[Rfam]
Nucleotides: 139
Stems, first nucleotide, its partner, number of pairs: 001137022024114002027110001029108002032105014049088003
Number, partner (000 for none) and nucleotide at each position: 001137u002136u003135a004134a005133g006132u007131u008130a009129a010128u011127u012126a013125u014124a015123u016122a017121a018120a019119a020118u021117a022116u023000u024114u025113c026000a027110u028000c029108u030107c031000c032105u033104u034103a035102a036101u037100u038099a039098u040097a041096c042095g043094u044093a045092u046000c047000a048000a049088c050087c051086u052000c053000a054000a055000a056000u057000u058000g059000a060000a061000a062000u063000u064000c065000u066000a067000u068000a069000a070000a071000u072000u073000u074000u075000a076000a077000g078000a079000c080000u081000u082000a083000u084000u085000g086051a087050g088049g089000c090000g091000a092045a093044u094043a095042c096041g097040u098039a099038u100037a101036a102035u103034u104033a105032a106000a107030g108029a109000c110027g111000a112000u113025g114024a115000c116022a117021u118020a119019u120018u121017u122016u123015a124014u125013g126012u127011g128010g129009u130008u131007a132006a133005c134004u135003u136002a137001a138000c139000u
The record is a 139-nucleotide sequence from Capsicum baccatum, which matches "MIR7993 microRNA precursor family" in Rfam.
The family has 4 seed sequences and 59 matches in Rfam 15.1.
Lineage of the source: Eukaryota > Solanales > Solanoideae > Capsiceae > Capsicum.
Its family is annotated with miRNA-mediated post-transcriptional gene silencing and RISC complex in the Gene Ontology.